RNA sequence: AGUUUGUCAAUUAUGUUUCUUAAAAAAAACCACUGAACAUACGAACUCCAUAGUGAUUUCAGUGCAUUACUGAGAGAAGCU
Numbered sequence: 001a002g003u004u005u006g007u008c009a010a011u012u013a014u015g016u017u018u019c020u021u022a023a024a025a026a027a028a029a030c031c032a033c034u035g036a037a038c039a040u041a042c043g044a045a046c047u048c049c050a051u052a053g054u055g056a057u058u059u060c061a062g063u064g065c066a067u068u069a070c071u072g073a074g075a076g077a078a079g080c081u
Stems, first nucleotide, its partner, number of pairs: 002080004007075002
Dot-bracket structure: .((((.((.................................................................)).)))).
The family of this 81-nucleotide sequence from Setophaga kirtlandii is "Small nucleolar RNA SNORD72".
snoRNA HBII-240 belongs to the CD family of snoRNAs. It is the human orthologue of the mouse MBII-240 and is predicted to guide 2'O-ribose methylation of the large 28S rRNA at residue U4590.
The base pairs follow the family's consensus structure.
The match comes from Rfam's covariance-model search (63 bits).
The family's RNA type in Rfam is C/D-box small nucleolar RNA.
For this family Rfam cites "RNomics: an experimental approach that identifies 201 candidates for novel, small, non-messenger RNAs in mouse" (Huttenhofer et al., EMBO J, 2001).
NCBI's taxonomy places the organism under Eukaryota, Sauropsida, Archelosauria, Saurischia, Setophaga.
Gene Ontology terms of the family: RNA processing and nucleolus.